RNA sequence: GGAAGGAAGCUCACUGUAGAGGCCACUAGCUUGGGUGUCUAUCACCCUACUUCCGCCUGUGGGAAGGUCUGAGGGAAGGGCCAAAUUGCCGCCCUAGCAGGGUGCCACCUUCUGAAGGUGGAGUGAGUUCCCACCAAUGUGGGUCUCCGAUGAAGCCCUAGAAUUGAGGCAGGAGAAGCGGAGAGGGGUCGUGGGUCGUGGGUCGUAGGCAUCCUCCCCGCGGAUGCCUCUGUGGCUCCGUUCGGGAUUUGAGAAUGACUUACGGCUGACAGCUUUGAGUACAAUGGGAAGAGGUGAAGCACCGCCAGCUUCAUAUAACCCAAUUCAGACCACUCUCCGGAAUUCC
Numbered sequence: 001g002g003a004a005g006g007a008a009g010c011u012c013a014c015u016g017u018a019g020a021g022g023c024c025a026c027u028a029g030c031u032u033g034g035g036u037g038u039c040u041a042u043c044a045c046c047c048u049a050c051u052u053c054c055g056c057c058u059g060u061g062g063g064a065a066g067g068u069c070u071g072a073g074g075g076a077a078g079g080g081c082c083a084a085a086u087u088g089c090c091g092c093c094c095u096a097g098c099a100g101g102g103u104g105c106c107a108c109c110u111u112c113u114g115a116a117g118g119u120g121g122a123g124u125g126a127g128u129u130c131c132c133a134c135c136a137a138u139g140u141g142g143g144u145c146u147c148c149g150a151u152g153a154a155g156c157c158c159u160a161g162a163a164u165u166g167a168g169g170c171a172g173g174a175g176a177a178g179c180g181g182a183g184a185g186g187g188g189u190c191g192u193g194g195g196u197c198g199u200g201g202g203u204c205g206u207a208g209g210c211a212u213c214c215u216c217c218c219c220g221c222g223g224a225u226g227c228c229u230c231u232g233u234g235g236c237u238c239c240g241u242u243c244g245g246g247a248u249u250u251g252a253g254a255a256u257g258a259c260u261u262a263c264g265g266c267u268g269a270c271a272g273c274u275u276u277g278a279g280u281a282c283a284a285u286g287g288g289a290a291g292a293g294g295u296g297a298a299g300c301a302c303c304g305c306c307a308g309c310u311u312c313a314u315a316u317a318a319c320c321c322a323a324u325u326c327a328g329a330c331c332a333c334u335c336u337c338c339g340g341a342a343u344u345c346c
Base pairs, nucleotide, nucleotide: 001346002345003344004343005338006337007336010293011292012291014288015287018060020058021057022056033047034046035045036044037043069328070327071326072325073324079267080266081265082264090104091103092102093101094100105121106120107119108118109117110116123263124262125261126260127259128258129257143248144247145246146245147244294314295313296312297311298310299309300308
Dot-bracket structure: (((((((..[[[.[[..(.(((..........(((((.....)))))........))).)........(((((.....((((.......(((((.....)))))((((((.....)))))).(((((((.............(((((................................................................................................)))))........)))))))))))...................]]..]]](((((((.......))))))).........))))).......)))....))))

Annotation: Shown here is a 346-nucleotide sequence, a member of the family "Nuclear RNase P". Rfam's curators write: Ribonuclease P (RNase P) is a ubiquitous endoribonuclease, found in archaea, bacteria and eukarya as well as chloroplasts and mitochondria.